[Rfam]
The family of this 101-nucleotide RNA sequence from Arabidopsis thaliana is "MIR5649 microRNA precursor family". The source organism's lineage runs through Eukaryota, Euphyllophyta, Magnoliopsida, eudicotyledons and Arabidopsis. Gene Ontology terms of the family: RISC complex and miRNA-mediated post-transcriptional gene silencing.
RNA sequence: UUCAUAUUAUAGUAACCAACAUAUUCAAUACUUUCAAAUGAAGAAAAAUAAUUGGCAUCUUCAUUUGAAAGUAUUGAAUAUGUUGGUUACUAUAAUAUGAA
Numbered sequence: 001u002u003c004a005u006a007u008u009a010u011a012g013u014a015a016c017c018a019a020c021a022u023a024u025u026c027a028a029u030a031c032u033u034u035c036a037a038a039u040g041a042a043g044a045a046a047a048a049u050a051a052u053u054g055g056c057a058u059c060u061u062c063a064u065u066u067g068a069a070a071g072u073a074u075u076g077a078a079u080a081u082g083u084u085g086g087u088u089a090c091u092a093u094a095a096u097a098u099g100a101a
Base pairs, nucleotide, nucleotide: 002100003099004098005097006096007095008094009093010092011091012090013089014088015087016086017085018084019083020082021081022080023079024078025077026076027075028074029073030072031071032070033069034068035067036066037065038064039063040062041061042060043059044058